Notes: Rfam assigns this 111-nucleotide RNA sequence from Shimazuella alba to the family "SAM riboswitch aptamer (S box leader)".
[Rfam]
RNA sequence: CUCUUAUCAAGAGUGGUGGAGGGACUGGCCCGAUGAAACCCGGCAACCAAUUGAUCCAAUCGAUCAAUAUGGUGCCAAUUCCUGCGGAAUAUGUAUUCUGCGAGAUGAGAG
Numbered sequence: 001c002u003c004u005u006a007u008c009a010a011g012a013g014u015g016g017u018g019g020a021g022g023g024a025c026u027g028g029c030c031c032g033a034u035g036a037a038a039c040c041c042g043g044c045a046a047c048c049a050a051u052u053g054a055u056c057c058a059a060u061c062g063a064u065c066a067a068u069a070u071g072g073u074g075c076c077a078a079u080u081c082c083u084g085c086g087g088a089a090u091a092u093g094u095a096u097u098c099u100g101c102g103a104g105a106u107g108a109g110a111g
Stems, first nucleotide, its partner, number of pairs: 001111008013041001015040003021031003025084001027082002042076004047072002050068006080103001085100006
The organism belongs to Shimazuella, within Bacteria.